[Rfam]
Flavobacterium-1 RNA: a 122-nucleotide sequence.
RNA sequence: CCAGGCUAGGGGUACAAGUCCUGCAGAAUUGCGUUCCACUGGACCUAAGCAACGACCUGAAAGGGUAGCGACGACGCCUGGCGUUAGAGGAGAGCGUACUGGACGCAGUGUCUCCUCUGACG
Numbered sequence: 001c002c003a004g005g006c007u008a009g010g011g012g013u014a015c016a017a018g019u020c021c022u023g024c025a026g027a028a029u030u031g032c033g034u035u036c037c038a039c040u041g042g043a044c045c046u047a048a049g050c051a052a053c054g055a056c057c058u059g060a061a062a063g064g065g066u067a068g069c070g071a072c073g074a075c076g077c078c079u080g081g082c083g084u085u086a087g088a089g090g091a092g093a094g095c096g097u098a099c100u101g102g103a104c105g106c107a108g109u110g111u112c113u114c115c116u117c118u119g120a121c122g
Stems, first nucleotide, its partner, number of pairs: 001081006007074001009072001010046004015041002022033004049069002057065002083121011099108003
The family's consensus secondary structure is taken from published work.